Notes:
This 71-nucleotide part of an RNA from Amylocarpus encephaloides belongs to the Rfam family "Ascomycota telomerase RNA". The family's RNA type in Rfam is non-coding RNA gene. On this family, see Qi et al., Nucleic Acids Res 2013: "The common ancestral core of vertebrate and fungal telomerase RNAs". The family has 4 seed sequences and 475 matches in Rfam 15.1.
RNA sequence: CUCCCUACAGUCCUCUGGCGAUCGCUUUCCGAAAGGAAACAUGGUUACCAGAACUUAACCCUAAGUAAUAG
Numbered sequence: 001c002u003c004c005c006u007a008c009a010g011u012c013c014u015c016u017g018g019c020g021a022u023c024g025c026u027u028u029c030c031g032a033a034a035g036g037a038a039a040c041a042u043g044g045u046u047a048c049c050a051g052a053a054c055u056u057a058a059c060c061c062u063a064a065g066u067a068a069u070a071g
Base pairs, nucleotide, nucleotide: 009055010054011053015051016050017049018048
Dot-bracket structure: ........(((...((((.............................)))).)))................